[Rfam]
RNA: mir-287 microRNA precursor family
Organism: Scaptodrosophila lebanonensis
RNA sequence: UUCGAUAGGGUCUGAAAUUUUGCACACAUUUACAAUAAAUGUAAAUGUGUUGAAAAUCGUUUGCACAACUGUG
Numbered sequence: 001u002u003c004g005a006u007a008g009g010g011u012c013u014g015a016a017a018u019u020u021u022g023c024a025c026a027c028a029u030u031u032a033c034a035a036u037a038a039a040u041g042u043a044a045a046u047g048u049g050u051u052g053a054a055a056a057u058c059g060u061u062u063g064c065a066c067a068a069c070u071g072u073g
Base pairs, nucleotide, nucleotide: 010064011063015062016061017057018056019055020054021053024050025049026048027047028046029045030044031043032042033041034040